Shown here is a 57-nucleotide RNA sequence, a member of the family "GP20-b RNA".
[Rfam]
RNA sequence: CGCCUGACCAGCGUAACGGGUCAAACACACGAGGAGCGACCUCGUACAAAAAGCGUA
Numbered sequence: 001c002g003c004c005u006g007a008c009c010a011g012c013g014u015a016a017c018g019g020g021u022c023a024a025a026c027a028c029a030c031g032a033g034g035a036g037c038g039a040c041c042u043c044g045u046a047c048a049a050a051a052a053g054c055g056u057a
Stems, first nucleotide, its partner, number of pairs: 001013003005023005030044004
Background: The base pairs follow the family's consensus structure, which is taken from published work.